Shown here is a 211-nucleotide RNA from Brevundimonas variabilis, a member of the family "permuted transfer-messenger RNA". The match comes from Rfam's covariance-model search (120 bits). The literature on the family includes a 2003 paper in Nucleic Acids Res by Zwieb et al., "tmRDB (tmRNA database)". The family's RNA type in Rfam is non-coding RNA gene.
[Rfam]
RNA sequence: GGCGAUAAACGCGCUUGUAAUAAGCGGACCGGACCCGGGUGCGAUUCCCGGCGGCUCCACCAAUCGCUCCCGGUAUCGCGGGAGAUGCGGGGCCGACUAGCAUCGACGGACGUGUAAAGAAGACUGCUUUCGCUCGUCCUGGCCCACCGUAUCGGGCCAUUUUCUAACUGCGAACGAUAACUUCGCUGGAGAAGUCCGCCUCGCCGCGUAA
Numbered sequence: 001g002g003c004g005a006u007a008a009a010c011g012c013g014c015u016u017g018u019a020a021u022a023a024g025c026g027g028a029c030c031g032g033a034c035c036c037g038g039g040u041g042c043g044a045u046u047c048c049c050g051g052c053g054g055c056u057c058c059a060c061c062a063a064u065c066g067c068u069c070c071c072g073g074u075a076u077c078g079c080g081g082g083a084g085a086u087g088c089g090g091g092g093c094c095g096a097c098u099a100g101c102a103u104c105g106a107c108g109g110a111c112g113u114g115u116a117a118a119g120a121a122g123a124c125u126g127c128u129u130u131c132g133c134u135c136g137u138c139c140u141g142g143c144c145c146a147c148c149g150u151a152u153c154g155g156g157c158c159a160u161u162u163u164c165u166a167a168c169u170g171c172g173a174a175c176g177a178u179a180a181c182u183u184c185g186c187u188g189g190a191g192a193a194g195u196c197c198g199c200c201u202c203g204c205c206g207c208g209u210a211a
Stems, first nucleotide, its partner, number of pairs: 001134005014122003025112002029109003035051005052095007135149002
Dot-bracket structure: (((((........(((........((..(((...(((((.......)))))(((((((..............................)))))))...........))).)).......))).......)))))((...........))..............................................................